The record is a 68-nucleotide RNA sequence from Dipodomys ordii, which matches "Small nucleolar RNA SNORD73" in Rfam. Rfam links the family to the GO terms RNA processing and nucleolus. Taxonomically the source falls in Dipodomys (Eukaryota, Euteleostomi, Eutheria, Boreoeutheria).
RNA sequence: GAUACAUGAUGAAAAAAUGUUUCGGUCCCAGAUGAUACUCAGUGAUAACUUAACAUUUUUCUGAUGUU
Numbered sequence: 001g002a003u004a005c006a007u008g009a010u011g012a013a014a015a016a017a018u019g020u021u022u023c024g025g026u027c028c029c030a031g032a033u034g035a036u037a038c039u040c041a042g043u044g045a046u047a048a049c050u051u052a053a054c055a056u057u058u059u060u061c062u063g064a065u066g067u068u
Stems, first nucleotide, its partner, number of pairs: 001068004